[Rfam]
Shown here is a 95-nucleotide sequence from Lacipirellula limnantheis, a member of the family "Bacterial small signal recognition particle RNA". It scores 52 bits against the family's covariance model. Lineage of the source: Bacteria > Planctomycetota > Planctomycetia > Lacipirellulaceae > Lacipirellula. It is annotated as a non-coding RNA gene.

RNA sequence: CGAGGGGCCCUUGCAAUGGGGGCCUUACGAACCUGGUCAGGGCGGAAACGCAGCAGCCAUAAGUUUGCGUCUCUUUGUGUGGGGGCCUCUCGUCG
Numbered sequence: 001c002g003a004g005g006g007g008c009c010c011u012u013g014c015a016a017u018g019g020g021g022g023c024c025u026u027a028c029g030a031a032c033c034u035g036g037u038c039a040g041g042g043c044g045g046a047a048a049c050g051c052a053g054c055a056g057c058c059a060u061a062a063g064u065u066u067g068c069g070u071c072u073c074u075u076u077g078u079g080u081g082g083g084g085g086c087c088u089c090u091c092g093u094c095g
Stems, first nucleotide, its partner, number of pairs: 004091004008085006014077001016076001018074004024067001027064002034059004042051003